[Rfam]
RNA sequence: GUCGCACAUCAGGAGUUGGGCACUGCCCGACGCCAACCUGCUUCCCGAGCAAGGUGGCGCCCCCGAGAGGGGGGAUGUGGUCGAACCGACAACCAAACGGGUCCAU
Numbered sequence: 001g002u003c004g005c006a007c008a009u010c011a012g013g014a015g016u017u018g019g020g021c022a023c024u025g026c027c028c029g030a031c032g033c034c035a036a037c038c039u040g041c042u043u044c045c046c047g048a049g050c051a052a053g054g055u056g057g058c059g060c061c062c063c064c065g066a067g068a069g070g071g072g073g074g075a076u077g078u079g080g081u082c083g084a085a086c087c088g089a090c091a092a093c094c095a096a097a098c099g100g101g102u103c104c105a106u
Base pairs, nucleotide, nucleotide: 006078007077008076009075010074015031017030018028019027020026021025032058033057034056037054038053039052040050041049042048045101046100080090081089082088083087

This 106-nucleotide RNA sequence from Inquilinus limosus belongs to the Rfam family "SAM-I/IV (S-adenosyl methionine) riboswitch aptamer". The source organism's lineage runs through Bacteria, Alphaproteobacteria, Rhodospirillales, Rhodospirillaceae and Inquilinus. The family's consensus secondary structure is taken from published work.